[Rfam]
RNA sequence: AAGGUAGCCAGACAUACGUGAGUUGCAAGUACUGGAAACCUAGUCUCACAC
Numbered sequence: 001a002a003g004g005u006a007g008c009c010a011g012a013c014a015u016a017c018g019u020g021a022g023u024u025g026c027a028a029g030u031a032c033u034g035g036a037a038a039c040c041u042a043g044u045c046u047c048a049c050a051c
Stems, first nucleotide, its partner, number of pairs: 001041001003039001008035002011033001012030002018049005
The record is a 51-nucleotide RNA sequence from Polerovirus PNPV, which matches "Exoribonuclease-resistant RNA (xrRNA) plant-infecting virus (class 3)" in Rfam. Rfam classes the family as a cis-regulatory element. For this family Rfam cites "The crystal structure of a Polerovirus exoribonuclease-resistant RNA shows how diverse sequences are integrated into a conserved fold" (Steckelberg et al., RNA, 2020). The sequence is in the family's curated seed alignment. Exoribonuclease-resistant RNA (xrRNA) plant-infecting virus (class 3) is a ncRNA that was reported in Plant viruses. The family's consensus secondary structure is taken from published work.